[Rfam]
RNA sequence: CUGCAGUCAAUUAAGCCGACCAGCCCCUGUUGCUAUCAGUGGAUGGUGUGCAAUGACUGCACACAGCAAACUCCCUUGGUUGUGUACGUGCUCCGUUCCUUGUACAGAGUACCUUAAGGGACCUUGGGAACACCU
Numbered sequence: 001c002u003g004c005a006g007u008c009a010a011u012u013a014a015g016c017c018g019a020c021c022a023g024c025c026c027c028u029g030u031u032g033c034u035a036u037c038a039g040u041g042g043a044u045g046g047u048g049u050g051c052a053a054u055g056a057c058u059g060c061a062c063a064c065a066g067c068a069a070a071c072u073c074c075c076u077u078g079g080u081u082g083u084g085u086a087c088g089u090g091c092u093c094c095g096u097u098c099c100u101u102g103u104a105c106a107g108a109g110u111a112c113c114u115u116a117a118g119g120g121a122c123c124u125u126g127g128g129a130a131c132a133c134c135u
Stems, first nucleotide, its partner, number of pairs: 002052004019047004025041001027039002078123003089111005

The family of this 135-nucleotide sequence from Anolis carolinensis is "Small nucleolar RNA SNORA70". By type it is an H/ACA-box small nucleolar RNA. It is one of the family's seed sequences. The family's consensus secondary structure was predicted with PFOLD. Rfam's curators write: snoRNA U70 seems to be exclusive to mammals and is a member of the H/ACA class of snoRNA which contain H (ANANNA) and ACA box motifs. H/ACA box snoRNAs are involved in the conversion of uridines to pseudouridines (5-ribosyluracil) a constituent of structural RNAs (transfer, ribosomal, small nuclear, and small nucleolar). The source organism's lineage runs through Eukaryota, Sauropsida, Squamata, Anolidae and Anolis.